RNA: DUF3800-VII RNA
RNA sequence: GGCAGACAUGUGCAGGAUUAAAUGUAGGUUGGCCUUUGGCCAGCAGCGCGUAAAGCGUGGGAUCCUACUACCUGAGGUCUGCUUUUUU
Numbered sequence: 001g002g003c004a005g006a007c008a009u010g011u012g013c014a015g016g017a018u019u020a021a022a023u024g025u026a027g028g029u030u031g032g033c034c035u036u037u038g039g040c041c042a043g044c045a046g047c048g049c050g051u052a053a054a055g056c057g058u059g060g061g062a063u064c065c066u067a068c069u070a071c072c073u074g075a076g077g078u079c080u081g082c083u084u085u086u087u088u
Base pairs, nucleotide, nucleotide: 001083002082003081004080005079006078007077011075013074014073015072016071024068025067026066027065028044029043030042031041032040033039034038047057048056049055